[Rfam]
RNA: ALIL pseudoknot
Organism: Aurantimonas sp. 22II-16-19i
RNA sequence: GGCUUAUUUUGCGAUGGCGGAGCUCGACCGCCCCGGGAAAGGGUGAUGGCGUUCAUUGACGCCCAUCGCGAGGAACUGGGGGUCGAGCCGAUCUGCCGCGAGCUGGCGAUCGCCCCA
Numbered sequence: 001g002g003c004u005u006a007u008u009u010u011g012c013g014a015u016g017g018c019g020g021a022g023c024u025c026g027a028c029c030g031c032c033c034c035g036g037g038a039a040a041g042g043g044u045g046a047u048g049g050c051g052u053u054c055a056u057u058g059a060c061g062c063c064c065a066u067c068g069c070g071a072g073g074a075a076c077u078g079g080g081g082g083u084c085g086a087g088c089c090g091a092u093c094u095g096c097c098g099c100g101a102g103c104u105g106g107c108g109a110u111c112g113c114c115c116c117a
Stems, first nucleotide, its partner, number of pairs: 016032005079116004089112002092109002096105001098103001